[Rfam]
Shown here is a 65-nucleotide RNA from Gadus morhua, a member of the family "Small nucleolar RNA SNORD75".
The family's consensus secondary structure was predicted with RNAalifold.
For this family Rfam cites "Purified box C/D snoRNPs are able to reproduce site-specific 2'-O-methylation of target RNA in vitro" (Galardi et al., Mol Cell Biol, 2002).
Rfam 15.1 lists 767 matches to the family in 616 species.
NCBI's taxonomy places the organism under Eukaryota, Opisthokonta, Osteoglossocephalai, Neoteleostei, Gadus.
It is annotated as a C/D-box small nucleolar RNA.
RNA sequence: AGUCGAGGAUGAUUAUGUAAGAGUAGUGGACAGAAGUGAUUUCUGAUUAAACUUACGCUGAGACU
Number, nucleotide and partner (000 for none) at each position: 001a065002g064003u063004c062005g000006a000007g000008g000009a000010u000011g000012a000013u000014u000015a000016u000017g000018u000019a000020a000021g000022a000023g000024u000025a000026g000027u000028g000029g000030a000031c000032a000033g000034a000035a000036g000037u000038g000039a000040u000041u000042u000043c000044u000045g000046a000047u000048u000049a000050a000051a000052c000053u000054u000055a000056c000057g000058c000059u000060g000061a000062g004063a003064c002065u001